[Rfam]
RNA: Y RNA
Organism: Cebus imitator
RNA sequence: AGCUGGUCUGAAGGUAGUGAGUUAACUCAAUUGAUGGUUCACAGUCAGUUACAGAUCAAACUCCUUGUUUGAUAUUUCCCCACUUCUCACUACUGCACUUGACUAGUCUUAA
Numbered sequence: 001a002g003c004u005g006g007u008c009u010g011a012a013g014g015u016a017g018u019g020a021g022u023u024a025a026c027u028c029a030a031u032u033g034a035u036g037g038u039u040c041a042c043a044g045u046c047a048g049u050u051a052c053a054g055a056u057c058a059a060a061c062u063c064c065u066u067g068u069u070u071g072a073u074a075u076u077u078c079c080c081c082a083c084u085u086c087u088c089a090c091u092a093c094u095g096c097a098c099u100u101g102a103c104u105a106g107u108c109u110u111a112a
Stems, first nucleotide, its partner, number of pairs: 002107007010100002014096002016091006044073002047070002